[Rfam]
RNA sequence: AGGACUGUAUCUAAUGCGAACAGUACCUACUUGUUUUUUUAGUUUACACAAUGAUAGUCUGCCUUGAUCCGUAGGGACAGGGACGGAAGA
Numbered sequence: 001a002g003g004a005c006u007g008u009a010u011c012u013a014a015u016g017c018g019a020a021c022a023g024u025a026c027c028u029a030c031u032u033g034u035u036u037u038u039u040u041a042g043u044u045u046a047c048a049c050a051a052u053g054a055u056a057g058u059c060u061g062c063c064u065u066g067a068u069c070c071g072u073a074g075g076g077a078c079a080g081g082g083a084c085g086g087a088a089g090a
Stems, first nucleotide, its partner, number of pairs: 001028003004024005010019002059086003062082005068077003